Source information:
This 141-nucleotide RNA from bacterium HR41 belongs to the Rfam family "c-di-AMP riboswitch aptamer (ydaO/yuaA leader)". A search with the family's covariance model found it, with a score of 52 bits. Gene Ontology terms of the family: cyclic-di-AMP binding and regulation of gene expression.
[Rfam]
RNA sequence: GUUUCAAGCGCGCCGAACCGGAGCGCUCACAGCGCUCCGGGCGGGGGACCCAAACUCCCGGGGCGAAUCGCGGCCCGAGCGCCGCGAAGCGCAGCAGCGCCAGCCCGACAGCUAACCCCGUAGGCGCAAGUACGACACCCA
Numbered sequence: 001g002u003u004u005c006a007a008g009c010g011c012g013c014c015g016a017a018c019c020g021g022a023g024c025g026c027u028c029a030c031a032g033c034g035c036u037c038c039g040g041g042c043g044g045g046g047g048a049c050c051c052a053a054a055c056u057c058c059c060g061g062g063g064c065g066a067a068u069c070g071c072g073g074c075c076c077g078a079g080c081g082c083c084g085c086g087a088a089g090c091g092c093a094g095c096a097g098c099g100c101c102a103g104c105c106c107g108a109c110a111g112c113u114a115a116c117c118c119c120g121u122a123g124g125c126g127c128a129a130g131u132a133c134g135a136c137a138c139c140c141a
Base pairs, nucleotide, nucleotide: 011126012125013124014123018040019039020038021037022036023035024034025033026032027031041121042120043119044118045117046116051060061106062105063104069086070085071084072083089100090099091098092097